[Rfam]
RNA sequence: UGACUGUAGUGGUCCUCUAGGGAAGAUGCAACGACACACAUUUCCACUUGCCCCGCGAGGCGCUAGCCGCUUCAAGAGCCCACCCGCGGUGAUCGAGUCCGGUGACCGACUGUCCCACUCGUGCAAGUAAUUCACGACUGCUGCGUGCGGUCCUGAGACGGAGAGAUAUCCUUGAGUCAAGCAAUUGGGCAGAGAGCUCUCAUCAUCGGGCGGCGUUUGUCAUCAACACGGUUGUGGUAUUCUGGGGUGAUGGAGUGUGAGAAGCAUUGUUGUCGACCUUUUUUUU
Number, nucleotide and partner (000 for none) at each position: 001u000002g014003a013004c012005u000006g000007u000008a000009g000010u000011g000012g004013u003014c002015c000016u000017c000018u000019a283020g282021g281022g280023a279024a000025g277026a000027u000028g273029c272030a271031a270032c269033g268034a000035c000036a000037c000038a000039c259040a258041u257042u255043u254044c253045c252046a000047c000048u250049u249050g248051c247052c246053c245054c244055g243056c000057g073058a072059g071060g070061c069062g068063c000064u000065a000066g000067c000068c062069g061070c060071u059072u058073c057074a000075a000076g242077a241078g240079c000080c237081c236082a235083c000084c231085c230086g229087c000088g224089g223090u222091g221092a220093u000094c215095g214096a000097g211098u210099c209100c208101g207102g206103u205104g204105a203106c000107c149108g000109a146110c145111u000112g000113u000114c000115c143116c140117a139118c000119u137120c136121g135122u134123g133124c000125a132126a131127g000128u000129a000130a000131u126132u125133c123134a122135c121136g120137a119138c000139u117140g116141c000142u000143g115144c000145g110146u109147g000148c000149g107150g000151u000152c000153c157154u000155g000156a000157g153158a000159c000160g000161g201162a200163g199164a198165g197166a000167u000168a000169u196170c000171c194172u193173u192174g000175a000176g000177u000178c187179a186180a185181g000182c000183a000184a000185u180186u179187g178188g000189g000190c000191a000192g173193a172194g171195a000196g169197c165198u164199c163200u162201c161202a000203u105204c104205a103206u102207c101208g100209g099210g098211c097212g000213g000214c095215g094216u000217u000218u000219g000220u092221c091222a090223u089224c088225a000226a000227c000228a000229c086230g085231g084232u000233u000234g000235u082236g081237g080238u000239a000240u078241u077242c076243u055244g054245g053246g052247g051248u050249g049250a048251u000252g045253g044254a043255g042256u000257g041258u040259g039260a000261g000262a000263a000264g000265c000266a000267u000268u033269g032270u031271u030272g029273u028274c000275g000276a000277c025278c000279u023280u022281u021282u020283u019284u000285u000286u000

A member of the RNA family "Fungal signal recognition particle RNA" from Aulographum hederae, 286 nucleotides long. The family is grouped with related families in Rfam's "SRP clan". A reference for the family is Wild et al. (2002), "Towards the structure of the mammalian signal recognition particle", Curr Opin Struct Biol. Rfam 15.1 lists 748 matches to the family in 741 species.